Shown here is a 76-nucleotide RNA sequence from Sphingomonas sp. SKA58, a member of the family "Makes More Granules Regulator RNA (mmgR)". Gene Ontology terms of the family: DNA-templated transcription, termination, protein binding and response to nitrogen compound.

RNA sequence: GGAAAAGGCCUUUCAGGCAUCCUCUCCUAAAAACUUUCAGGGCUGGUCUUCGGACCGGCCCUUUUUUUCCGCCAUU
Numbered sequence: 001g002g003a004a005a006a007g008g009c010c011u012u013u014c015a016g017g018c019a020u021c022c023u024c025u026c027c028u029a030a031a032a033a034c035u036u037u038c039a040g041g042g043c044u045g046g047u048c049u050u051c052g053g054a055c056c057g058g059c060c061c062u063u064u065u066u067u068u069c070c071g072c073c074a075u076u
Stems, first nucleotide, its partner, number of pairs: 008018004040061009
Rfam classes the family as a small RNA.
SuhB later renamed mmgR (makes more granules regulator) was a putative non-coding RNA found multiple times in the Agrobacterium tumefaciens genome and related alpha-proteobacteria.